RNA sequence: AAAAAGGCCCUUUUCAGGGCCACAAAAAGUUCACGAACGUCUAAU
Numbered sequence: 001a002a003a004a005a006g007g008c009c010c011u012u013u014u015c016a017g018g019g020c021c022a023c024a025a026a027a028a029g030u031u032c033a034c035g036a037a038c039g040u041c042u043a044a045u
Base pairs, nucleotide, nucleotide: 006021007020008019009018010017011016
Dot-bracket structure: .....((((((....))))))........................
A member of the RNA family "Histone 3' UTR stem-loop" from Acanthosepion pharaonis, 45 nucleotides long. Pairs were carried over by alignment from the consensus structure, which is taken from published work. The family's RNA type in Rfam is cis-regulatory element. Gene Ontology term of the family: mRNA 3'-end processing by stem-loop binding and cleavage. About the family: The mRNAs of metazoan histone genes lack a poly-A tail. 3' end processing occurs at a site between a highly conserved stem-loop (modelled by this family) and a purine rich region around 20 nts downstream (the histone downstream element, or HDE). The stem-loop is bound by a 31 kDa stem-loop binding protein (SLBP - also termed the histone hairpin binding protein, or HBP). The match comes from Rfam's covariance-model search (34 bits).